[Rfam]
RNA sequence: UGUGCACCCUAACCCAAAGGCGGCCUCUGCCCGUGGGGCCGCCCUGUCCUGGGUGCCGACAGGAACGGUCUCUGUCGCCUUUCUCUGAGCUGCCGGGCCUUUGAAAGUGAAUUCAGGGACCUACACCC
Numbered sequence: 001u002g003u004g005c006a007c008c009c010u011a012a013c014c015c016a017a018a019g020g021c022g023g024c025c026u027c028u029g030c031c032c033g034u035g036g037g038g039c040c041g042c043c044c045u046g047u048c049c050u051g052g053g054u055g056c057c058g059a060c061a062g063g064a065a066c067g068g069u070c071u072c073u074g075u076c077g078c079c080u081u082u083c084u085c086u087g088a089g090c091u092g093c094c095g096g097g098c099c100u101u102u103g104a105a106a107g108u109g110a111a112u113u114c115a116g117g118g119a120c121c122u123a124c125a126c127c128c
Stems, first nucleotide, its partner, number of pairs: 004056006019043009067121007079107005087100001089098002
RNA: Small nucleolar RNA SNORA68